[Rfam]
RNA sequence: ACCAUCCUUUUCUUGGGGUUGCUUUACUGUCCAAUGAACAUGUAGUGAGAGCAGUACUGCUAAUGCCUAAACAACACGUCUGCAUCAGCUAAGGCUUUGGUUUUGGCUCAGUGCAAUUUUUGGAAAA
Numbered sequence: 001a002c003c004a005u006c007c008u009u010u011u012c013u014u015g016g017g018g019u020u021g022c023u024u025u026a027c028u029g030u031c032c033a034a035u036g037a038a039c040a041u042g043u044a045g046u047g048a049g050a051g052c053a054g055u056a057c058u059g060c061u062a063a064u065g066c067c068u069a070a071a072c073a074a075c076a077c078g079u080c081u082g083c084a085u086c087a088g089c090u091a092a093g094g095c096u097u098u099g100g101u102u103u104u105g106g107c108u109c110a111g112u113g114c115a116a117u118u119u120u121u122g123g124a125a126a127a
Base pairs, nucleotide, nucleotide: 006018007017008016009015021060022059026055027054028053029052030051032049038046039045082114083113084112085111090105091104092103093102094101095100